Rfam assigns this 94-nucleotide RNA from Epulopiscium sp. Nele67-Bin005 to the family "THF (Tetrahydrofolate) riboswitch aptamer". Rfam's curators write: Tetrahydrofolate (THF) riboswitch was first reported for Ames et al. as an RNA motif in 5' untranslated (5'-UTR)regions of folate transport and biosynthesis genes in Firmicutes genomes. Rfam links the family to the GO term tetrahydrofolate metabolic process. Taxonomically the source falls in Candidatus Epulonipiscium (Bacteria, Bacillati, Bacillota, Lachnospirales). The literature on the family includes a 2011 paper in Structure by Trausch et al., "The structure of a tetrahydrofolate-sensing riboswitch reveals two ligand binding sites in a single aptamer".

[Rfam]
RNA sequence: AGCAGGCUAGGGUAGUAUGCGUUAAGUGCCAUUGUUACGGAAUGUGAACAUGGACGAAGCCUUUUGGUGCGAUAUAUUAUCUGCAUUCACUGUA
Numbered sequence: 001a002g003c004a005g006g007c008u009a010g011g012g013u014a015g016u017a018u019g020c021g022u023u024a025a026g027u028g029c030c031a032u033u034g035u036u037a038c039g040g041a042a043u044g045u046g047a048a049c050a051u052g053g054a055c056g057a058a059g060c061c062u063u064u065u066g067g068u069g070c071g072a073u074a075u076a077u078u079a080u081c082u083g084c085a086u087u088c089a090c091u092g093u094a
Stems, first nucleotide, its partner, number of pairs: 002093004010082010020071003026055002029053004034049003040088005059068003